[Rfam]
RNA sequence: CCCAUGAACAUAUGAUGAAGUAUGUGUUGGUAGGGACAUCUGAGUUAAUGUGAGGAAACGCCAACUUUUCUGAGCACAUGGG
Numbered sequence: 001c002c003c004a005u006g007a008a009c010a011u012a013u014g015a016u017g018a019a020g021u022a023u024g025u026g027u028u029g030g031u032a033g034g035g036a037c038a039u040c041u042g043a044g045u046u047a048a049u050g051u052g053a054g055g056a057a058a059c060g061c062c063a064a065c066u067u068u069u070c071u072g073a074g075c076a077c078a079u080g081g082g
Stems, first nucleotide, its partner, number of pairs: 001082005
RNA: Small nucleolar RNA SNORD74